RNA sequence: UAAAGCGCAACGAAAAAGAGUAAGUAGCAUUAGAAAACGUAACAAGAGAGUUGUCGGUUGGUGGGAGACAAUUACGUGGGUAGUGUGAAUGGACUUUUGAGCGUUGAACCCGAACCAUUUUAUGCAGUAGGGGGAUCGAUUAGGCCUUAUCGUUAUACAAGGCAUCCACUUCAUUUGUAACAAUGAAUGAGUUGGACUAAGUGAAUCAGUAAGCUGAUUAAUCAAGGUGGCACCACGAGUUUAUCGUCCUUGUC
Number, nucleotide and partner (000 for none) at each position: 001u000002a000003a000004a000005g000006c000007g102008c101009a000010a000011c000012g000013a000014a000015a097016a096017a095018g094019a000020g000021u000022a000023a000024g000025u000026a000027g086028c085029a084030u083031u082032a081033g000034a000035a000036a000037a000038c000039g075040u074041a073042a000043c000044a000045a000046g000047a000048g000049a000050g072051u071052u070053g069054u068055c067056g000057g000058u000059u000060g000061g000062u000063g000064g000065g000066a000067g055068a054069c053070a052071a051072u050073u041074a040075c039076g000077u000078g000079g000080g000081u032082a031083g030084u029085g028086u027087g000088a000089a000090u000091g000092g000093a000094c018095u017096u016097u015098u000099g000100a000101g008102c007103g000104u000105u135106g000107a000108a000109c132110c131111c130112g000113a000114a000115c000116c000117a000118u000119u000120u000121u000122a000123u000124g000125c000126a000127g000128u000129a000130g111131g110132g109133g000134g000135a105136u000137c152138g151139a150140u000141u000142a000143g000144g000145c000146c000147u000148u000149a000150u139151c138152g137153u000154u000155a000156u000157a000158c000159a000160a000161g000162g000163c000164a000165u000166c000167c000168a000169c000170u000171u000172c000173a000174u000175u000176u000177g000178u000179a000180a000181c000182a000183a000184u000185g000186a000187a000188u000189g000190a000191g000192u000193u000194g000195g000196a000197c000198u000199a000200a000201g000202u000203g000204a219205a218206u217207c216208a215209g214210u000211a000212a000213g000214c209215u208216g207217a206218u205219u204220a000221a000222u000223c000224a251225a250226g249227g248228u000229g000230g000231c000232a000233c000234c000235a247236c246237g245238a244239g000240u000241u000242u000243a000244u238245c237246g236247u235248c227249c226250u225251u224252g000253u000254c000